About this RNA
The record is a 73-nucleotide RNA sequence from Pseudomonas oryzihabitans, which matches "Repression of heat shock gene expression (ROSE) element" in Rfam. The match comes from Rfam's covariance-model search (61 bits). The family's RNA type in Rfam is RNA thermoregulator. The organism belongs to Pseudomonas, within Bacteria. The pairing is the family consensus, mapped onto this sequence. Its family is annotated with response to temperature stimulus and regulation of translation in the Gene Ontology.
RNA sequence: UGCGGGAUGCCGAAGUCGGGUCCCGCAGGCAAUACCGAAACUUGCUGAACCUAUCAGGAGAUUCACCAUGAGC
Numbered sequence: 001u002g003c004g005g006g007a008u009g010c011c012g013a014a015g016u017c018g019g020g021u022c023c024c025g026c027a028g029g030c031a032a033u034a035c036c037g038a039a040a041c042u043u044g045c046u047g048a049a050c051c052u053a054u055c056a057g058g059a060g061a062u063u064c065a066c067c068a069u070g071a072g073c
Base pairs, nucleotide, nucleotide: 001027002026003025004024005023006022007021008020010019011018012017032062033061041060042059043058045057046056047055048054
Dot-bracket structure: ((((((((.(((....)))))))))))....((.......(((.((((.....)))))))))...........